[Rfam]
RNA sequence: GGGCUUAUGAUGAUAUUUCAAAUAAUCUUAGCCAAUUUCAGUGAAUUUUUUUAUCAAUGAUUUAAAUGUUGCACACACUACAUCCU
Dot-bracket structure: (((.(............................................................................).)))
Numbered sequence: 001g002g003g004c005u006u007a008u009g010a011u012g013a014u015a016u017u018u019c020a021a022a023u024a025a026u027c028u029u030a031g032c033c034a035a036u037u038u039c040a041g042u043g044a045a046u047u048u049u050u051u052u053a054u055c056a057a058u059g060a061u062u063u064a065a066a067u068g069u070u071g072c073a074c075a076c077a078c079u080a081c082a083u084c085c086u
Stems, first nucleotide, its partner, number of pairs: 001086003005082001